[Rfam]
A member of the RNA family "c-di-GMP-II-GAG riboswitch aptamer" from Deinococcus peraridilitoris, 83 nucleotides long.
RNA sequence: AUGUCAUCCGGGGCUGUGAAUCACGCGGUGCAACCGGGCACCUGCCGCGUGAGGAGCCAGUGGUGCGACCGAUCGGACGGGCA
Numbered sequence: 001a002u003g004u005c006a007u008c009c010g011g012g013g014c015u016g017u018g019a020a021u022c023a024c025g026c027g028g029u030g031c032a033a034c035c036g037g038g039c040a041c042c043u044g045c046c047g048c049g050u051g052a053g054g055a056g057c058c059a060g061u062g063g064u065g066c067g068a069c070c071g072a073u074c075g076g077a078c079g080g081g082c083a
Base pairs, nucleotide, nucleotide: 004080005079007077008076009075010074011073012058013057014056021052022051023050024049025048026047027046028045036070037069038066039065040064041063042062

Gene Ontology terms of the family: cyclic-di-GMP binding and regulation of gene expression. Rfam's curators put it in the seed alignment. The literature on the family includes a 2017 paper in Proc Natl Acad Sci U S A by Weinberg et al., "Bioinformatic analysis of riboswitch structures uncovers variant classes with altered ligand specificity". NCBI's taxonomy places the organism under Bacteria, Thermotogati, Deinococci, Deinococcales, Deinococcus peraridilitoris.